[Rfam]
The record is a 106-nucleotide sequence, which matches "cow-rumen-2 RNA" in Rfam. It is one of the family's seed sequences.
RNA sequence: AUCGAAGUAUUACAUUAGCAAGUAAUACAUAUAGCCGCCAUGGCAUAGCAAGAUGUAGCUGGAGUACAGGAUGACCGACCCAUAAGCUUGCUUAUAAGUCCCACAG
Numbered sequence: 001a002u003c004g005a006a007g008u009a010u011u012a013c014a015u016u017a018g019c020a021a022g023u024a025a026u027a028c029a030u031a032u033a034g035c036c037g038c039c040a041u042g043g044c045a046u047a048g049c050a051a052g053a054u055g056u057a058g059c060u061g062g063a064g065u066a067c068a069g070g071a072u073g074a075c076c077g078a079c080c081c082a083u084a085a086g087c088u089u090g091c092u093u094a095u096a097a098g099u100c101c102c103a104c105a106g
Stems, first nucleotide, its partner, number of pairs: 002078001007028007041103001042101002044098001047092006060082003065077001069076002